[Rfam]
RNA sequence: UCAGAUGGCCGGGCGGCCGCGGCGUUGCGGUGCAAGCCGCGGCGUCGAGGAAAGUCCGGGCUCCACGGAAACACGGUGCCGGCUAACGGCCGGCGGGGGCGACCCCAGGGAAAGUGCCACAGAAAGCAGACCGCCGAACGGGCCUCGGCCCGUGGCAAGGGUGAAAGGGUGCGGCAAGAGCGCACCGCGGGACCGGUAACGGGACCGGCACGGCAAACCCCACCGGGAGCAAGACCAAAUAGGGAUGGCAAGGGCCGGGCAACCGGCCCGGGCGCGUUUCCGCGUCGCUGUCCGGGUCGGUCGCGCGAGGCGCCCGGUGACGGGCGUCCCAGAGGAAUGGCCGCCACCCGCAUCCGCGGGUACAGAACCCGGCUUACAGGCCAUCUGACGCG
Numbered sequence: 001u002c003a004g005a006u007g008g009c010c011g012g013g014c015g016g017c018c019g020c021g022g023c024g025u026u027g028c029g030g031u032g033c034a035a036g037c038c039g040c041g042g043c044g045u046c047g048a049g050g051a052a053a054g055u056c057c058g059g060g061c062u063c064c065a066c067g068g069a070a071a072c073a074c075g076g077u078g079c080c081g082g083c084u085a086a087c088g089g090c091c092g093g094c095g096g097g098g099g100c101g102a103c104c105c106c107a108g109g110g111a112a113a114g115u116g117c118c119a120c121a122g123a124a125a126g127c128a129g130a131c132c133g134c135c136g137a138a139c140g141g142g143c144c145u146c147g148g149c150c151c152g153u154g155g156c157a158a159g160g161g162u163g164a165a166a167g168g169g170u171g172c173g174g175c176a177a178g179a180g181c182g183c184a185c186c187g188c189g190g191g192a193c194c195g196g197u198a199a200c201g202g203g204a205c206c207g208g209c210a211c212g213g214c215a216a217a218c219c220c221c222a223c224c225g226g227g228a229g230c231a232a233g234a235c236c237a238a239a240u241a242g243g244g245a246u247g248g249c250a251a252g253g254g255c256c257g258g259g260c261a262a263c264c265g266g267c268c269c270g271g272g273c274g275c276g277u278u279u280c281c282g283c284g285u286c287g288c289u290g291u292c293c294g295g296g297u298c299g300g301u302c303g304c305g306c307g308a309g310g311c312g313c314c315c316g317g318u319g320a321c322g323g324g325c326g327u328c329c330c331a332g333a334g335g336a337a338u339g340g341c342c343g344c345c346a347c348c349c350g351c352a353u354c355c356g357c358g359g360g361u362a363c364a365g366a367a368c369c370c371g372g373c374u375u376a377c378a379g380g381c382c383a384u385c386u387g388a389c390g391c392g
Stems, first nucleotide, its partner, number of pairs: 001388010011377001012345007020047011052375003056372005061229004070279002074225005079093005094108001095106004109220002114218002116214003131160002133156003138153006168186006187209001188207003193202003233302004243293006271286005309328008
The family of this 392-nucleotide RNA sequence from Vineibacter terrae is "Bacterial RNase P class A". The organism belongs to Vineibacter, within Bacteria. Gene Ontology terms of the family: tRNA processing, ribonuclease P activity and dimeric ribonuclease P complex. The match comes from Rfam's covariance-model search (284 bits). The family's RNA type in Rfam is ribozyme.